[Rfam]
RNA sequence: GAAUAUACUUCACUUUUCUUCAAACACUUUCAUAGUAUAUAUACAUACUAUUACCCUAUCUACCACCAUGGCCCCCUGCGAGUGCAAGUGCUGCUCUGGCAGCUGCAACUCCUGCUCUUGCGCUAACUGCAAGGUGUGUACACAUCCUCGAAUA
Numbered sequence: 001g002a003a004u005a006u007a008c009u010u011c012a013c014u015u016u017u018c019u020u021c022a023a024a025c026a027c028u029u030u031c032a033u034a035g036u037a038u039a040u041a042u043a044c045a046u047a048c049u050a051u052u053a054c055c056c057u058a059u060c061u062a063c064c065a066c067c068a069u070g071g072c073c074c075c076c077u078g079c080g081a082g083u084g085c086a087a088g089u090g091c092u093g094c095u096c097u098g099g100c101a102g103c104u105g106c107a108a109c110u111c112c113u114g115c116u117c118u119u120g121c122g123c124u125a126a127c128u129g130c131a132a133g134g135u136g137u138g139u140a141c142a143c144a145u146c147c148u149c150g151a152a153u154a
Stems, first nucleotide, its partner, number of pairs: 077101003084094003105130003114121002